[Rfam]
RNA sequence: AGAAAAGUAGGUGCCGCCCCGCACAGGGGCAACGCUAAUAGACCGACACGAAUACAAGGAAACGCGACGGAACCGCGAAAAACCCAGAACACAAUACCAGCUUGAAUACUACGCCAUCGUUUGUGAAGUUUUC
Numbered sequence: 001a002g003a004a005a006a007g008u009a010g011g012u013g014c015c016g017c018c019c020c021g022c023a024c025a026g027g028g029g030c031a032a033c034g035c036u037a038a039u040a041g042a043c044c045g046a047c048a049c050g051a052a053u054a055c056a057a058g059g060a061a062a063c064g065c066g067a068c069g070g071a072a073c074c075g076c077g078a079a080a081a082a083c084c085c086a087g088a089a090c091a092c093a094a095u096a097c098c099a100g101c102u103u104g105a106a107u108a109c110u111a112c113g114c115c116a117u118c119g120u121u122u123g124u125g126a127a128g129u130u131u132u133c
Stems, first nucleotide, its partner, number of pairs: 011092003016030005058083001112125003